[Rfam]
RNA sequence: AGUAAUAGAAUAGGUGACUCAAGGAUGAUCGGCCAUUUUCCCGUGAAGGGAGGUGGUCGAUAUGACAGUAUUCGCAGCACUAAUGUUCGCAGUUACUUUCGCAGCAUUAAUUGUAGCCAUAUUGUCAUCAAACGACAGAAAAUAAUCCAUCCUUGAGUUAGCGGCUCAUUAAGGAUGGAUUAUUCACCUUAUAACUGCCGAUCCCUUAGGGAACUGACGCUAUUACAUUGAUCGUUCAAUGUGCAACCAUUGGGCG
Numbered sequence: 001a002g003u004a005a006u007a008g009a010a011u012a013g014g015u016g017a018c019u020c021a022a023g024g025a026u027g028a029u030c031g032g033c034c035a036u037u038u039u040c041c042c043g044u045g046a047a048g049g050g051a052g053g054u055g056g057u058c059g060a061u062a063u064g065a066c067a068g069u070a071u072u073c074g075c076a077g078c079a080c081u082a083a084u085g086u087u088c089g090c091a092g093u094u095a096c097u098u099u100c101g102c103a104g105c106a107u108u109a110a111u112u113g114u115a116g117c118c119a120u121a122u123u124g125u126c127a128u129c130a131a132a133c134g135a136c137a138g139a140a141a142a143u144a145a146u147c148c149a150u151c152c153u154u155g156a157g158u159u160a161g162c163g164g165c166u167c168a169u170u171a172a173g174g175a176u177g178g179a180u181u182a183u184u185c186a187c188c189u190u191a192u193a194a195c196u197g198c199c200g201a202u203c204c205c206u207u208a209g210g211g212a213a214c215u216g217a218c219g220c221u222a223u224u225a226c227a228u229u230g231a232u233c234g235u236u237c238a239a240u241g242u243g244c245a246a247c248c249a250u251u252g253g254g255c256g
Stems, first nucleotide, its partner, number of pairs: 002226004007221002011201001013199004018157008027147003034055003038052005064126007101117002202213001204211002233256009242246001
Rfam assigns this 256-nucleotide RNA from Sporosarcina luteola to the family "BsrG". The literature on the family includes a 2016 paper in RNA Biol by Muller et al., "A multistress responsive type I toxin-antitoxin system: bsrE/SR5 from the B. subtilis chromosome". By type it is a small RNA. Lineage of the source: Bacteria > Bacilli > Caryophanales > Caryophanaceae > Sporosarcina. Rfam 15.1 lists 614 matches to the family in 343 species. About the family: bsrE, bsrG and bsrH pair through intermolecular interactions with antisense sRNAs. They form type I toxin/antitoxin system that includes an mRNA encoding for a short, toxic peptide (bsrE, bsrG and bsrH) and an antitoxin that is comprised of an antisense RNA. bsrG encodes a 39-amino-acid toxin, and the 180 nucleotide antisense sRNA called SR4 acts as the antitoxin (they overlap by 123 nucleotides).